[Rfam]
About this RNA:
This 96-nucleotide RNA from Nicotiana sylvestris belongs to the Rfam family "MIR6152 microRNA precursor family". Rfam links the family to the GO terms RISC complex and miRNA-mediated post-transcriptional gene silencing. The base pairs follow the family's consensus structure, which was predicted with RNAalifold.
RNA sequence: AAGGGGUGUGACAGUACUCGACUGUAUUCACGGCGUAAAAUGGGGGAUUAUACUAUUUUUAAAUGGAAAGUGAAUCAAUUAACAUAAUAGACUCUU
Numbered sequence: 001a002a003g004g005g006g007u008g009u010g011a012c013a014g015u016a017c018u019c020g021a022c023u024g025u026a027u028u029c030a031c032g033g034c035g036u037a038a039a040a041u042g043g044g045g046g047a048u049u050a051u052a053c054u055a056u057u058u059u060u061a062a063a064u065g066g067a068a069a070g071u072g073a074a075u076c077a078a079u080u081a082a083c084a085u086a087a088u089a090g091a092c093u094c095u096u
Stems, first nucleotide, its partner, number of pairs: 002095003009090001011088001014085002018081001020080002023077002026075006034065003037059007